[Rfam]
RNA: sRNA-Xcc1
Organism: Marinomonas transparens
RNA sequence: GUCGGGAGGGUGGUUAAAUACAAAACCCUUAUGGGAAAUAGACCCGCGGUCUCUUUGAAGCCGUCUGAACCUCCUGACACCCAAUC
Numbered sequence: 001g002u003c004g005g006g007a008g009g010g011u012g013g014u015u016a017a018a019u020a021c022a023a024a025a026c027c028c029u030u031a032u033g034g035g036a037a038a039u040a041g042a043c044c045c046g047c048g049g050u051c052u053c054u055u056u057g058a059a060g061c062c063g064u065c066u067g068a069a070c071c072u073c074c075u076g077a078c079a080c081c082c083a084a085u086c
Base pairs, nucleotide, nucleotide: 001078002077003076004075005074006073007072008071009070012044013043014042015041017039026035027034028033046064047063048062049061050060